Shown here is a 101-nucleotide sequence from Paenibacillus mucilaginosus, a member of the family "Purine riboswitch aptamer". The family's consensus secondary structure is taken from published work. It scores 72 bits against the family's covariance model.
[Rfam]
RNA sequence: UCGCAUACAGGAAUAACGUUUCGUAUAAUUCCGGGAAUUGGCCCGGAAGUUUCUACGAGAUCACCGUAAAUGAUCUGGCUACGAACAAGGAUAACCGGUUC
Numbered sequence: 001u002c003g004c005a006u007a008c009a010g011g012a013a014u015a016a017c018g019u020u021u022c023g024u025a026u027a028a029u030u031c032c033g034g035g036a037a038u039u040g041g042c043c044c045g046g047a048a049g050u051u052u053c054u055a056c057g058a059g060a061u062c063a064c065c066g067u068a069a070a071u072g073a074u075c076u077g078g079c080u081a082c083g084a085a086c087a088a089g090g091a092u093a094a095c096c097g098g099u100u101c
Stems, first nucleotide, its partner, number of pairs: 020085006029048007058076006
Dot-bracket structure: ...................((((((...(((((((......))))))).........((((((.......))))))...))))))................